The record is a 99-nucleotide RNA from Rhizobium etli, which matches "RcsR1 sRNA" in Rfam. The family's RNA type in Rfam is small RNA. About the family: RcsR1 (rhizobial cold and salinity stress riboregulator 1) trans-acting sRNA, formerly known as SmelC587, is a stress-related riboregulator, conserved in Sinorhizobium, Rhizobium and Agrobacterium.
RNA sequence: ACAUUGCUGUUUGGUGGUGGGCUCGCUGAGGCGGCCUCGACCAAUCGUGUCCAAAGACGACGACGAGUGAGCCGCCCGAAACUUCGAGGCGGCUUUUUU
Numbered sequence: 001a002c003a004u005u006g007c008u009g010u011u012u013g014g015u016g017g018u019g020g021g022c023u024c025g026c027u028g029a030g031g032c033g034g035c036c037u038c039g040a041c042c043a044a045u046c047g048u049g050u051c052c053a054a055a056g057a058c059g060a061c062g063a064c065g066a067g068u069g070a071g072c073c074g075c076c077c078g079a080a081a082c083u084u085c086g087a088g089g090c091g092g093c094u095u096u097u098u099u
Stems, first nucleotide, its partner, number of pairs: 011044005017038001019037004024033003048059004069095008077086003